[Rfam]
Rfam assigns this 136-nucleotide sequence from Clostridium sp. DL-VIII to the family "Group II catalytic intron D1-D4-7". Pairs were carried over by alignment from the consensus structure. Group II introns are found in rRNA, tRNA and mRNA of organelles in fungi, plants and protists, and also in mRNA in bacteria. The organism belongs to Clostridium, within Bacteria. On this family, see Bonen and Vogel, Trends Genet 2001: "The ins and outs of group II introns".
RNA sequence: UACCCCAUCCAUUCUGGGUAACUCUAUUGUGACUAUCGUAAAGGGUAACUUUUGGGUUAGAAAGCUCACGAGACAAUGUGGAAGUUCGAGUAGCCUAAGCUGGUACAACUGCUAGAGUAAGAAUGCUAUGGAGAAC
Number, nucleotide and partner (000 for none) at each position: 001u000002a019003c018004c017005c016006c000007a000008u000009c000010c000011a000012u000013u000014c000015u000016g005017g004018g003019u002020a000021a000022c000023u000024c000025u000026a000027u000028u070029g069030u068031g067032a066033c060034u059035a058036u000037c056038g000039u054040a053041a052042a051043g050044g049045g000046u000047a000048a000049c044050u043051u042052u041053u040054g039055g000056g037057u000058u035059a034060g033061a000062a000063a000064g000065c000066u032067c031068a030069c029070g028071a000072g000073a000074c000075a000076a000077u000078g000079u000080g000081g000082a000083a101084g100085u099086u098087c000088g096089a000090g000091u000092a000093g000094c000095c000096u088097a000098a086099g085100c084101u083102g127103g126104u125105a124106c000107a000108a000109c117110u116111g000112c000113u000114a000115g000116a110117g109118u000119a000120a000121g000122a000123a000124u105125g104126c103127u102128a000129u000130g000131g000132a000133g000134a000135a000136c000